Record summary:
This 407-nucleotide RNA from Paenibacillus sp. JCM 10914 belongs to the Rfam family "Bacterial RNase P class A". The source organism's lineage runs through Bacteria, Bacillati, Bacilli, Paenibacillaceae and Paenibacillus. The match comes from Rfam's covariance-model search (261 bits). The family's RNA type in Rfam is ribozyme.
RNA sequence: AAAGUUUGACAGACAAUCGCUGGCGGUGUCAAAGCCGCGAGAGGAAAGUCCGGGCUCCGUAGGGCAGGGUGCUGGAUAACGUCCAGUCAGCGCGAGUUGAAGGAUAGUGCCACAGAAAUGGACCGCCGAUGGCCGCCUCAUAGCGGCACAGGCAAGGAUGGAACCGAGGUGUAAGAGACCCCGAGGAACGCUGGUGACUUCGUUCCUGGUAAACCCCACUUGGAGCAAGACCUAAUGGGACGCAGUCUCUCUAGAAGAGACAGCCUUUGCCCGAGGCGCGUCUGGGUUGGUCGCUUGAGCCGAUCAGCAAUGAUUGGCCUAGAUAGAUGAUUGUCGCUUAUGGUGGCAGGGUAGUUCCCGUUAUGACCACGAAGAGCACAGAACCCGGCUUACGUAAGGCUUUCCCA
Numbered sequence: 001a002a003a004g005u006u007u008g009a010c011a012g013a014c015a016a017u018c019g020c021u022g023g024c025g026g027u028g029u030c031a032a033a034g035c036c037g038c039g040a041g042a043g044g045a046a047a048g049u050c051c052g053g054g055c056u057c058c059g060u061a062g063g064g065c066a067g068g069g070u071g072c073u074g075g076a077u078a079a080c081g082u083c084c085a086g087u088c089a090g091c092g093c094g095a096g097u098u099g100a101a102g103g104a105u106a107g108u109g110c111c112a113c114a115g116a117a118a119u120g121g122a123c124c125g126c127c128g129a130u131g132g133c134c135g136c137c138u139c140a141u142a143g144c145g146g147c148a149c150a151g152g153c154a155a156g157g158a159u160g161g162a163a164c165c166g167a168g169g170u171g172u173a174a175g176a177g178a179c180c181c182c183g184a185g186g187a188a189c190g191c192u193g194g195u196g197a198c199u200u201c202g203u204u205c206c207u208g209g210u211a212a213a214c215c216c217c218a219c220u221u222g223g224a225g226c227a228a229g230a231c232c233u234a235a236u237g238g239g240a241c242g243c244a245g246u247c248u249c250u251c252u253a254g255a256a257g258a259g260a261c262a263g264c265c266u267u268u269g270c271c272c273g274a275g276g277c278g279c280g281u282c283u284g285g286g287u288u289g290g291u292c293g294c295u296u297g298a299g300c301c302g303a304u305c306a307g308c309a310a311u312g313a314u315u316g317g318c319c320u321a322g323a324u325a326g327a328u329g330a331u332u333g334u335c336g337c338u339u340a341u342g343g344u345g346g347c348a349g350g351g352u353a354g355u356u357c358c359c360g361u362u363a364u365g366a367c368c369a370c371g372a373a374g375a376g377c378a379c380a381g382a383a384c385c386c387g388g389c390u391u392a393c394g395u396a397a398g399g400c401u402u403u404c405c406c407a
Stems, first nucleotide, its partner, number of pairs: 001403007009395002012335007020041002023038005046391003050388005055225004062272004067221005072086005087101001088099004102216002107214002109210003123157002125153003130148002133145001165183002168180003185206006193198001229292004238283006263277005299318008